[Rfam]
RNA sequence: CUCACACCCCAACCCAAGAGUCACUGUUGGUUGUUGCAGUGGUUUAAACAGAGGUGCAGAUGGCAAGCAGGCCUCCUCGCCUUUGGGCAGCCGUGGCCGUGCCUCUCGAAGUGAAUUUGGAGGUUCCACAGCC
Numbered sequence: 001c002u003c004a005c006a007c008c009c010c011a012a013c014c015c016a017a018g019a020g021u022c023a024c025u026g027u028u029g030g031u032u033g034u035u036g037c038a039g040u041g042g043u044u045u046a047a048a049c050a051g052a053g054g055u056g057c058a059g060a061u062g063g064c065a066a067g068c069a070g071g072c073c074u075c076c077u078c079g080c081c082u083u084u085g086g087g088c089a090g091c092c093g094u095g096g097c098c099g100u101g102c103c104u105c106u107c108g109a110a111g112u113g114a115a116u117u118u119g120g121a122g123g124u125u126c127c128a129c130a131g132c133c
Stems, first nucleotide, its partner, number of pairs: 002059001005056004019044009070125006081111007090102002